[Rfam]
Nucleotides: 056
Stems, first nucleotide, its partner, number of pairs: 002012001004010002016049001018047001022045008
Number, partner (000 for none) and nucleotide at each position: 001000c002012g003000c004010u005009a006000u007000a008000c009005u010004a011000a012002c013000g014000g015000c016049g017000c018047a019000a020000u021000u022045g023044c024043c025042g026041g027040u028039c029038c030000a031000c032000c033000g034000c035000u036000u037000c038029g039028g040027g041026c042025c043024g044023g045022c046000a047018u048000u049016c050000a051000u052000u053000g054000u055000g056000u

The record is a 56-nucleotide sequence from Kosakonia cowanii, which matches "Enterobacterial sRNA STnc450" in Rfam.
NCBI's taxonomy places the organism under Bacteria, Enterobacterales, Enterobacteriaceae, Kosakonia, Kosakonia cowanii.
It is annotated as a small RNA.